[Rfam]
RNA: Archaeal large subunit ribosomal RNA, nucleotides 933 to 1369
RNA sequence: CUUCUCGAAAUGGAUCGAAGUCCAGCCUCGAGCGAGACGGCCUAAGAGGUAAAGCUACUGAUUCUGGGUUCUGGAGGUUUACCUCCAGACCCGGAGUCAAACUCUGAACUCUUAGGCGUUGCAGACCUCGGGAGUGAGGGACAGUGCGUAAGGUACUGUUCCUAGAGGGAAACAACCCAGAGCAUGGUUAAGGUCCCACAAUUUCUGACUAAGUGUCAUUGAGGAUGUCCUGGUUCUCAGACAGCGGGGAGGUUAGCUUAGAAGCAGCUACCCUUUAAAGAUAGCGUAACAGCUCACCCGUUGAGAGCUGGGGCGCCGUAAAUGGACGGGGCUCAAGUCAGAAACCGAUACCAUGUCCGCGAGAGCGGGUUAGAGAAGCGAUCUGCAUGGGUGGAAGCAUGGCCGUGAGGUCGUGUGGACCGUGUAGAUACGAGAAU
Numbered sequence: 001c002u003u004c005u006c007g008a009a010a011u012g013g014a015u016c017g018a019a020g021u022c023c024a025g026c027c028u029c030g031a032g033c034g035a036g037a038c039g040g041c042c043u044a045a046g047a048g049g050u051a052a053a054g055c056u057a058c059u060g061a062u063u064c065u066g067g068g069u070u071c072u073g074g075a076g077g078u079u080u081a082c083c084u085c086c087a088g089a090c091c092c093g094g095a096g097u098c099a100a101a102c103u104c105u106g107a108a109c110u111c112u113u114a115g116g117c118g119u120u121g122c123a124g125a126c127c128u129c130g131g132g133a134g135u136g137a138g139g140g141a142c143a144g145u146g147c148g149u150a151a152g153g154u155a156c157u158g159u160u161c162c163u164a165g166a167g168g169g170a171a172a173c174a175a176c177c178c179a180g181a182g183c184a185u186g187g188u189u190a191a192g193g194u195c196c197c198a199c200a201a202u203u204u205c206u207g208a209c210u211a212a213g214u215g216u217c218a219u220u221g222a223g224g225a226u227g228u229c230c231u232g233g234u235u236c237u238c239a240g241a242c243a244g245c246g247g248g249g250a251g252g253u254u255a256g257c258u259u260a261g262a263a264g265c266a267g268c269u270a271c272c273c274u275u276u277a278a279a280g281a282u283a284g285c286g287u288a289a290c291a292g293c294u295c296a297c298c299c300g301u302u303g304a305g306a307g308c309u310g311g312g313g314c315g316c317c318g319u320a321a322a323u324g325g326a327c328g329g330g331g332c333u334c335a336a337g338u339c340a341g342a343a344a345c346c347g348a349u350a351c352c353a354u355g356u357c358c359g360c361g362a363g364a365g366c367g368g369g370u371u372a373g374a375g376a377a378g379c380g381a382u383c384u385g386c387a388u389g390g391g392u393g394g395a396a397g398c399a400u401g402g403c404c405g406u407g408a409g410g411u412c413g414u415g416u417g418g419a420c421c422g423u424g425u426a427g428a429u430a431c432g433a434g435a436a437u
Base pairs, nucleotide, nucleotide: 001378002377003376004375005374006373011024012023013022014021015020026134027132028131029130030129031128032127036120037119038118040117041116042115043114044113045112046111047110052105053103054102060098061097062096063095064094065093066092067091068090069089072087073086074085075084076083077082138162139161140160141159142158143157144156145155146154167178168177169176182356183355184354185353186352187351188350192346193345194344202343204342205341206340207339208338209337223317224316227314228313229312230311231310232309233308234307235306236305244301245300246299247298248297250274251273252272255269256268257267275279280295284293285292357368358367379432381429382428383427384426385425386424387423388422389421390420397416398415399414400413401412402411403410404409